[Rfam]
RNA sequence: CAGGAGCUAUACGACUGACGGAAGUGGAUGGAAACCACAUGAAGUAUAGCGGGCGCCAAAGCCGCCUCAAUGCCGACCGUCUGGGCGCACCGA
Dot-bracket structure: .....(((((((..(.[[[[[..((((.......))))..)..)))))))....................((((..]]]]]..))))......
Numbered sequence: 001c002a003g004g005a006g007c008u009a010u011a012c013g014a015c016u017g018a019c020g021g022a023a024g025u026g027g028a029u030g031g032a033a034a035c036c037a038c039a040u041g042a043a044g045u046a047u048a049g050c051g052g053g054c055g056c057c058a059a060a061g062c063c064g065c066c067u068c069a070a071u072g073c074c075g076a077c078c079g080u081c082u083g084g085g086c087g088c089a090c091c092g093a
Stems, first nucleotide, its partner, number of pairs: 006050007015041001017081005024038004071087004